The family of this 124-nucleotide RNA sequence from Halanaerobium hydrogeniformans is "Molybdenum/Tungsten riboswitch aptamer (Moco RNA motif)". Rfam links the family to the GO terms regulation of gene expression, molybdenum ion binding and tungstate binding. NCBI's taxonomy places the organism under Bacteria, Bacillati, Bacillota, Halanaerobiaceae, Halanaerobium. Pairs were carried over by alignment from the consensus structure, which is taken from published work. It scores 70 bits against the family's covariance model.
[Rfam]
RNA sequence: UAUUAGUAAUACCUUCGAGUUUUUCUGCCUAAAGAAAAUAGCUUUCUAAGGUGGCUAAACCGAUGGGUUGAGAAAGAAAUGACUCAGCCUCCCGUGCUUGGAAAGAAGAGUAAUCUUAAGGAGG
Numbered sequence: 001u002a003u004u005a006g007u008a009a010u011a012c013c014u015u016c017g018a019g020u021u022u023u024u025c026u027g028c029c030u031a032a033a034g035a036a037a038a039u040a041g042c043u044u045u046c047u048a049a050g051g052u053g054g055c056u057a058a059a060c061c062g063a064u065g066g067g068u069u070g071a072g073a074a075a076g077a078a079a080u081g082a083c084u085c086a087g088c089c090u091c092c093c094g095u096g097c098u099u100g101g102a103a104a105g106a107a108g109a110g111u112a113a114u115c116u117u118a119a120g121g122a123g124g
Base pairs, nucleotide, nucleotide: 003118006115013108014107015106016105019060020059021058022057025054026053027052028051029050033047034046035045036044065090066089067088068087069086070085071084072083075080091101092100